[Rfam]
RNA sequence: AGCCACGCAGUCAGCACAAAGCGAAUUAUUCUUUUGCCUUUUACUAAAGAUUACCGUGUGCGCAGUGCAAUUAGUGGUAUAUGCCAUUUUUUGGAGAGGUUCUCUUCUUUAGAGUGCC
Numbered sequence: 001a002g003c004c005a006c007g008c009a010g011u012c013a014g015c016a017c018a019a020a021g022c023g024a025a026u027u028a029u030u031c032u033u034u035u036g037c038c039u040u041u042u043a044c045u046a047a048a049g050a051u052u053a054c055c056g057u058g059u060g061c062g063c064a065g066u067g068c069a070a071u072u073a074g075u076g077g078u079a080u081a082u083g084c085c086a087u088u089u090u091u092u093g094g095a096g097a098g099g100u101u102c103u104c105u106u107c108u109u110u111a112g113a114g115u116g117c118c
Stems, first nucleotide, its partner, number of pairs: 003077004008067002011064001014061005027053002030050005099117002102114003
Dot-bracket structure: ..((((.((.(..(((((........((.(((((...........))))).))...)))))..).))......)))).....................((.(((.......))).)).
The record is a 118-nucleotide RNA from Capsicum baccatum, which matches "U5 spliceosomal RNA" in Rfam. On this family, see Hinz et al., J Biol Chem 1996: "Domain analysis of human U5 RNA. Cap trimethylation, protein binding, and spliceosome assembly". The family's RNA type in Rfam is spliceosomal small nuclear RNA. NCBI's taxonomy places the organism under Eukaryota, Viridiplantae, Embryophyta, Solanaceae, Capsicum. It scores 78 bits against the family's covariance model.